The record is a 265-nucleotide RNA from Clostridium sp. N3C, which matches "Bacterial large signal recognition particle RNA" in Rfam. It is annotated as a non-coding RNA gene. The signal recognition particle (SRP) is a universally conserved ribonucleoprotein involved in the co-translational targeting of proteins to membranes.
RNA sequence: CCGUGCUAGAUGGGGAGUUAGCGGUGCCCUGUAACCUGCAAUCCGCUACAGCAGGGUUGAAUUCCUUGCCGAGGCCUUGGCUUGUAAGGUCUGGCUUACAAAAGUGGCGUUGAGAACUGGGUCCCACGCAACGGAAAUUCAUGAACCCCGUCAGGUCCGGAAGGAAGCAGCGGUAAGUGAACCCUUUCGUGUGCCGUGGAGCAGCCUGGUUUGAGUUAACUAUGUAAGUAACGCUUAUAGGCUAUUGUCAGAGCAAGGUGCACGG
Numbered sequence: 001c002c003g004u005g006c007u008a009g010a011u012g013g014g015g016a017g018u019u020a021g022c023g024g025u026g027c028c029c030u031g032u033a034a035c036c037u038g039c040a041a042u043c044c045g046c047u048a049c050a051g052c053a054g055g056g057u058u059g060a061a062u063u064c065c066u067u068g069c070c071g072a073g074g075c076c077u078u079g080g081c082u083u084g085u086a087a088g089g090u091c092u093g094g095c096u097u098a099c100a101a102a103a104g105u106g107g108c109g110u111u112g113a114g115a116a117c118u119g120g121g122u123c124c125c126a127c128g129c130a131a132c133g134g135a136a137a138u139u140c141a142u143g144a145a146c147c148c149c150g151u152c153a154g155g156u157c158c159g160g161a162a163g164g165a166a167g168c169a170g171c172g173g174u175a176a177g178u179g180a181a182c183c184c185u186u187u188c189g190u191g192u193g194c195c196g197u198g199g200a201g202c203a204g205c206c207u208g209g210u211u212u213g214a215g216u217u218a219a220c221u222a223u224g225u226a227a228g229u230a231a232c233g234c235u236u237a238u239a240g241g242c243u244a245u246u247g248u249c250a251g252a253g254c255a256a257g258g259u260g261c262a263c264g265g
Stems, first nucleotide, its partner, number of pairs: 001265006009058003012030004017025003035055005064258006073249003079243010092230002096227005104220002106217003114212009124199005129191002132189005138181005148173004156165003